[Rfam]
RNA sequence: ACGCGGAAAGGAGGUGGUCCGAAUAAUGGUUAGUCAUAGUCGGGCUAGCGAGGUGGUUGUCCGCUGACGUCGCGGACUGUUGUCUCGUGACGUGACGCGAAUACGAGGCAACCACCGGGGCCCCUGGCAGCCGGAGGGCGGGACGUUCGAUCCCGACCAUGGUCCAUCCGGCCCGCCGCAUCGGCGGAGUGUUGCCUGGGGCCCUCUUCAA
Number, nucleotide and partner (000 for none) at each position: 001a000002c000003g000004c000005g000006g000007a000008a000009a000010g000011g000012a000013g061014g060015u059016g058017g057018u056019c000020c000021g000022a000023a000024u000025a000026a000027u000028g000029g000030u000031u000032a000033g000034u000035c000036a000037u000038a000039g000040u000041c000042g000043g000044g000045c000046u000047a000048g000049c000050g000051a000052g000053g000054u000055g000056g018057u017058u016059g015060u014061c013062c099063g098064c097065u095066g000067a093068c092069g000070u090071c089072g088073c087074g084075g083076a000077c000078u000079g000080u000081u000082g000083u075084c074085u000086c000087g073088u072089g071090a070091c000092g068093u067094g000095a065096c000097g064098c063099g062100a000101a000102u000103a000104c000105g000106a000107g000108g000109c000110a000111a000112c000113c000114a000115c000116c000117g205118g204119g203120g202121c201122c200123c199124c198125u000126g196127g195128c194129a193130g000131c000132c000133g185134g000135a000136g000137g000138g000139c000140g000141g000142g000143a000144c000145g000146u000147u000148c000149g000150a000151u000152c000153c000154c000155g000156a000157c000158c000159a000160u000161g000162g000163u000164c000165c000166a000167u000168c000169c000170g000171g000172c000173c000174c000175g000176c000177c000178g000179c000180a000181u000182c000183g000184g000185c133186g000187g000188a000189g000190u000191g000192u000193u129194g128195c127196c126197u000198g124199g123200g122201g121202c120203c119204c118205u117206c000207u000208u000209c000210a000211a000
Rfam assigns this 211-nucleotide RNA sequence from [Actinomadura] parvosata to the family "Actinobacteria sRNA Ms_IGR-5". The pairing is the family consensus, mapped onto this sequence. A search with the family's covariance model found it, with a score of 60 bits.